This 94-nucleotide sequence from Immundisolibacter cernigliae belongs to the Rfam family "c-di-GMP-I riboswitch aptamer".
[Rfam]
RNA sequence: CGGGACAAAUGCCACACCCGUCGCGAGGCGGGGCCGGAAAGCCACGGAUCUUGUUGCCCUCGCCUGAGGCCACCAAGACGGCCGGGUUGCCAAA
Numbered sequence: 001c002g003g004g005a006c007a008a009a010u011g012c013c014a015c016a017c018c019c020g021u022c023g024c025g026a027g028g029c030g031g032g033g034c035c036g037g038a039a040a041g042c043c044a045c046g047g048a049u050c051u052u053g054u055u056g057c058c059c060u061c062g063c064c065u066g067a068g069g070c071c072a073c074c075a076a077g078a079c080g081g082c083c084g085g086g087u088u089g090c091c092a093a094a
Stems, first nucleotide, its partner, number of pairs: 012037002017032006040088004045084003049078005